[Rfam]
RNA sequence: UAGGAAAAUUAUUGUACGUCGCUUUGGAUAAAAGCGUCUGCUAAAUGAAUGUAA
Dot-bracket structure: ............((((...((((((.....))))))..))).)...........
This 54-nucleotide RNA sequence from Synaphobranchus kaupii belongs to the Rfam family "UnaL2 LINE 3' element". Pairs were carried over by alignment from the consensus structure, which is taken from published work. Gene Ontology term of the family: transposition, RNA-mediated. The organism belongs to Synaphobranchus, within Eukaryota.